A member of the RNA family "Plant signal recognition particle RNA" from Kalanchoe fedtschenkoi, 297 nucleotides long. By type it is a non-coding RNA gene. The family has 63 seed sequences and 4,988 matches in Rfam 15.1. Clan: SRP clan.
[Rfam]
RNA sequence: GCCGGGUCUGGUAGCGCGGGCCUGUAAUCAAGCGAGGCAUUAAAUAAGGGGAACGUUCUCGGGCUUGACGGGUCGGGUCUGAUGAUUGGUUUCCGGCUUGCCCGAUCCAAGACGGGCGUGGCUCUACGGGCCCGGGCGAAGGCUUGGGCCCAGAUUGCCUUGAACGCGAGGGAACCGCGCCAGGCUGGUUUCACAGAGCAGCGAAUACCUCCAGCUCUCGUCGGUGGAUGGAUAACGGGCUGGUGAUUGUCAGGCCCAGUCAGAUCCGGAUGGCUCAAUAAUUGAACCCCAUUUUUG
Numbered sequence: 001g002c003c004g005g006g007u008c009u010g011g012u013a014g015c016g017c018g019g020g021c022c023u024g025u026a027a028u029c030a031a032g033c034g035a036g037g038c039a040u041u042a043a044a045u046a047a048g049g050g051g052a053a054c055g056u057u058c059u060c061g062g063g064c065u066u067g068a069c070g071g072g073u074c075g076g077g078u079c080u081g082a083u084g085a086u087u088g089g090u091u092u093c094c095g096g097c098u099u100g101c102c103c104g105a106u107c108c109a110a111g112a113c114g115g116g117c118g119u120g121g122c123u124c125u126a127c128g129g130g131c132c133c134g135g136g137c138g139a140a141g142g143c144u145u146g147g148g149c150c151c152a153g154a155u156u157g158c159c160u161u162g163a164a165c166g167c168g169a170g171g172g173a174a175c176c177g178c179g180c181c182a183g184g185c186u187g188g189u190u191u192c193a194c195a196g197a198g199c200a201g202c203g204a205a206u207a208c209c210u211c212c213a214g215c216u217c218u219c220g221u222c223g224g225u226g227g228a229u230g231g232a233u234a235a236c237g238g239g240c241u242g243g244u245g246a247u248u249g250u251c252a253g254g255c256c257c258a259g260u261c262a263g264a265u266c267c268g269g270a271u272g273g274c275u276c277a278a279u280a281a282u283u284g285a286a287c288c289c290c291a292u293u294u295u296u297g
Stems, first nucleotide, its partner, number of pairs: 001038003004023007028035002041297004046292001048290004054284002056281002059278001061276005069268006075257011087245002093243008102231002105229005111222006118215002120159003125154001128151010168211004178203003185196003